This 137-nucleotide RNA from Owenia fusiformis belongs to the Rfam family "MIR480 microRNA precursor family".
On this family, see Lu et al., Plant Cell 2005: "Novel and mechanical stress-responsive MicroRNAs in Populus trichocarpa that are absent from Arabidopsis".
A search with the family's covariance model found it, with a score of 39 bits.
Gene Ontology terms of the family: RISC complex and miRNA-mediated post-transcriptional gene silencing.
RNA sequence: GAAACAUUUUUUGAUAAGAUAUGUUGUAGUUAUGGUAAAAUUAGAUGUGGCUGUCUAAAAUCAUUUGUCAUACCAUACCUGGGCCUUUGUUACCCUCGGCCUGUAAAAAAUAAUGAGUUUUCAUAAUUAGUAGAUUA
Number, nucleotide and partner (000 for none) at each position: 001g000002a000003a000004a135005c000006a000007u132008u130009u129010u000011u000012u126013g000014a124015u123016a000017a000018g122019a121020u000021a000022u000023g118024u117025u116026g000027u113028a000029g111030u110031u109032a000033u000034g000035g000036u000037a000038a000039a000040a000041u000042u000043a000044g000045a000046u000047g000048u000049g000050g000051c000052u000053g000054u000055c000056u000057a000058a000059a000060a000061u000062c000063a000064u000065u000066u000067g000068u000069c000070a000071u000072a000073c000074c000075a000076u000077a000078c000079c000080u000081g000082g000083g000084c000085c000086u000087u000088u000089g000090u000091u000092a000093c000094c000095c000096u000097c000098g000099g000100c000101c000102u000103g000104u000105a000106a000107a000108a000109a031110a030111u029112a000113a027114u000115g000116a025117g024118u023119u000120u000121u019122c018123a015124u014125a000126a012127u000128u000129a009130g008131u000132a007133g000134a000135u004136u000137a000